[Rfam]
RNA: TPP riboswitch aptamer (THI element)
Organism: Paenibacillus swuensis
RNA sequence: AAUAGGAAAUACGGGAGCUUGAUGAAGUCAGGCUGAGAGUGCGUCCUCGUGACGCAGACCGUUAAUCUGAACUGGAUAAUGCCAGCGGAGAGAAUUUCACGAUGCGCCUG
Numbered sequence: 001a002a003u004a005g006g007a008a009a010u011a012c013g014g015g016a017g018c019u020u021g022a023u024g025a026a027g028u029c030a031g032g033c034u035g036a037g038a039g040u041g042c043g044u045c046c047u048c049g050u051g052a053c054g055c056a057g058a059c060c061g062u063u064a065a066u067c068u069g070a071a072c073u074g075g076a077u078a079a080u081g082c083c084a085g086c087g088g089a090g091a092g093a094a095u096u097u098c099a100c101g102a103u104g105c106g107c108c109u110g
Stems, first nucleotide, its partner, number of pairs: 006098005011062004017033005040056005066091003072085004